[Rfam]
Rfam assigns this 132-nucleotide sequence from Octodon degus to the family "Small nucleolar RNA SNORA8". Rfam classes the family as an H/ACA-box small nucleolar RNA. Pairs were carried over by alignment from the consensus structure, which was predicted with RNAfold. The family has 5 seed sequences and 1,490 matches in Rfam 15.1. ACA8 is a member of the H/ACA class of snoRNA that guide the sites of modification of uridines to pseudouridines.

RNA sequence: UGCACUGCAUGGUAUUUGCACUCAACAGUUAAACCUGCUGGUGUGUUCAAAAGACAGUGCCAUAGAAAUUCAGUAUCUGGCAUUGUUGGUUUUCUUGCCUUUGUGCAUGUUAAACCUGGUAUUGAUACAUUA
Numbered sequence: 001u002g003c004a005c006u007g008c009a010u011g012g013u014a015u016u017u018g019c020a021c022u023c024a025a026c027a028g029u030u031a032a033a034c035c036u037g038c039u040g041g042u043g044u045g046u047u048c049a050a051a052a053g054a055c056a057g058u059g060c061c062a063u064a065g066a067a068a069u070u071c072a073g074u075a076u077c078u079g080g081c082a083u084u085g086u087u088g089g090u091u092u093u094c095u096u097g098c099c100u101u102u103g104u105g106c107a108u109g110u111u112a113a114a115c116c117u118g119g120u121a122u123u124g125a126u127a128c129a130u131u132a
Base pairs, nucleotide, nucleotide: 002060003059004058005057006056007055015053016052017051018046019045020044021043023041024039026037027036028035063127064126067123068122069121070119071118072117073116080106081105082104083103